[Rfam]
RNA sequence: GAUAAUAUAAGUGAGAAUCUUAUUCGCCGAAAGCCUAAGGUUUCCUGGGGAAGGCAAAUCCGCCCAGGGUUAGCCGGUACCUAAGUCGAGGUCGAAAGGCGUAGACGAUGGACAACAGGUUAAUAUUCCUGUGCUGCUAUUUAACGUUUGAGCUUGGGAGGACGUGGACACAACGAUUAGCAAACCUAGUAGACAUGGUUUGUUCAAGCUGGAGGCACCGCUCUAGGAAAAUCCGGAGCAAUAAGAUGUCGAAAGCGAGUACGUUGGCUCUUGGCCUAGAAGUAAUCUGAGUGUCUUCCAAGAAAAGUCUCGUUAGCGAGUUAACAUGGCAACCGUACUAAAACUGACACAGGUAGGCAAGGAGAGAAUCCUAAGGCGCU
Numbered sequence: 001g002a003u004a005a006u007a008u009a010a011g012u013g014a015g016a017a018u019c020u021u022a023u024u025c026g027c028c029g030a031a032a033g034c035c036u037a038a039g040g041u042u043u044c045c046u047g048g049g050g051a052a053g054g055c056a057a058a059u060c061c062g063c064c065c066a067g068g069g070u071u072a073g074c075c076g077g078u079a080c081c082u083a084a085g086u087c088g089a090g091g092u093c094g095a096a097a098g099g100c101g102u103a104g105a106c107g108a109u110g111g112a113c114a115a116c117a118g119g120u121u122a123a124u125a126u127u128c129c130u131g132u133g134c135u136g137c138u139a140u141u142u143a144a145c146g147u148u149u150g151a152g153c154u155u156g157g158g159a160g161g162a163c164g165u166g167g168a169c170a171c172a173a174c175g176a177u178u179a180g181c182a183a184a185c186c187u188a189g190u191a192g193a194c195a196u197g198g199u200u201u202g203u204u205c206a207a208g209c210u211g212g213a214g215g216c217a218c219c220g221c222u223c224u225a226g227g228a229a230a231a232u233c234c235g236g237a238g239c240a241a242u243a244a245g246a247u248g249u250c251g252a253a254a255g256c257g258a259g260u261a262c263g264u265u266g267g268c269u270c271u272u273g274g275c276c277u278a279g280a281a282g283u284a285a286u287c288u289g290a291g292u293g294u295c296u297u298c299c300a301a302g303a304a305a306a307g308u309c310u311c312g313u314u315a316g317c318g319a320g321u322u323a324a325c326a327u328g329g330c331a332a333c334c335g336u337a338c339u340a341a342a343a344c345u346g347a348c349a350c351a352g353g354u355a356g357g358c359a360a361g362g363a364g365a366g367a368a369u370c371c372u373a374a375g376g377c378g379c380u
Stems, first nucleotide, its partner, number of pairs: 007023005025378004033358004039339002044068006053061002075335004080111002085106003089102001091100003115132005135331006141324005155312005164298001166296002169293003175287005181202006203261001208256003214250003220239005226234002264279004269274001344353002360372004

Bacterial large subunit ribosomal RNA: a 380-nucleotide part of an RNA from uncultured bacterium OMZ60_11L23. For this family Rfam cites "Crystal structure of the ribosome at 5.5 A resolution" (Yusupov et al., Science, 2001). It is one of the family's seed sequences. The family has 102 seed sequences and 51,934 matches in Rfam 15.1.